[Rfam]
RNA: SAM riboswitch aptamer (S box leader)
Organism: Thermoflexales bacterium
RNA sequence: CUCUUAUCCAGAGAGGCGGAGGGACCGGCCCGAUGAUGCCUCGACAACCAGCUGGAUUGGAGGUUGGAUGCUAGAAGUUGGAUGUUAGAAGUUGGAUGUUAGAAGUUGGCAGCUGGAAGCUUACUACUCCAGUCUCCAAUCUUAAACUCCAAUCUCUAACCUCUGAUCUCCACAAUCCAAUCACCAAUCUUCAAGCCAGGUGCCAAGUCCGGCAGAGUAUUUCUGGGAGAUGAGAG
Number, nucleotide and partner (000 for none) at each position: 001c236002u235003c234004u233005u232006a231007u230008c229009c000010a000011g000012a000013g042014a041015g040016g039017c038018g000019g000020a000021g031022g030023g029024a000025c212026c211027g210028g209029c023030c022031c021032g000033a000034u000035g000036a000037u000038g017039c016040c015041u014042c013043g204044a000045c202046a201047a000048c200049c199050a000051g196052c195053u194054g000055g000056a000057u000058u000059g000060g000061a000062g000063g000064u000065u000066g000067g000068a000069u000070g000071c000072u000073a000074g000075a000076a000077g000078u000079u000080g000081g000082a000083u000084g000085u000086u000087a000088g000089a000090a000091g000092u000093u000094g000095g000096a000097u000098g000099u000100u000101a000102g000103a000104a000105g000106u000107u000108g000109g000110c000111a000112g000113c000114u000115g000116g000117a000118a000119g000120c000121u000122u000123a000124c000125u000126a000127c000128u000129c000130c000131a000132g000133u000134c000135u000136c000137c000138a000139a000140u000141c000142u000143u000144a000145a000146a000147c000148u000149c000150c000151a000152a000153u000154c000155u000156c000157u000158a000159a000160c000161c000162u000163c000164u000165g000166a000167u000168c000169u000170c000171c000172a000173c000174a000175a000176u000177c000178c000179a000180a000181u000182c000183a000184c000185c000186a000187a000188u000189c000190u000191u000192c000193a000194a053195g052196c051197c000198a000199g049200g048201u046202g045203c000204c043205a000206a000207g000208u228209c028210c027211g026212g025213c225214a224215g223216a222217g221218u000219a000220u000221u217222u216223c215224u214225g213226g000227g000228a208229g008230a007231u006232g005233a004234g003235a002236g001